A member of the RNA family "Small nucleolar RNA SNORD10" from Microcaecilia unicolor, 145 nucleotides long. On this family, see Huttenhofer et al., EMBO J 2001: "RNomics: an experimental approach that identifies 201 candidates for novel, small, non-messenger RNAs in mouse". It is annotated as a C/D-box small nucleolar RNA. Pairs were carried over by alignment from the consensus structure, which was predicted with WAR. Lineage of the source: Eukaryota > Metazoa > Vertebrata > Dipnotetrapodomorpha > Microcaecilia.
[Rfam]
RNA sequence: GUUUGAUGAUGAUACCCAUGCGUGUCAUCUGACUCCAGCAUGCCUCGGGCUCAAAGGACACCUGUCGACGUUUUGCCGGUAGGGAAUGUCCCUAGGGUACUGUAGGAUUCUGGUGUUAUGAUCAUAAACCUUAUUUUCUGAAAAC
Numbered sequence: 001g002u003u004u005g006a007u008g009a010u011g012a013u014a015c016c017c018a019u020g021c022g023u024g025u026c027a028u029c030u031g032a033c034u035c036c037a038g039c040a041u042g043c044c045u046c047g048g049g050c051u052c053a054a055a056g057g058a059c060a061c062c063u064g065u066c067g068a069c070g071u072u073u074u075g076c077c078g079g080u081a082g083g084g085a086a087u088g089u090c091c092c093u094a095g096g097g098u099a100c101u102g103u104a105g106g107a108u109u110c111u112g113g114u115g116u117u118a119u120g121a122u123c124a125u126a127a128a129c130c131u132u133a134u135u136u137u138c139u140g141a142a143a144a145c
Base pairs, nucleotide, nucleotide: 001145002144003143004142043106044105045104046102047101048100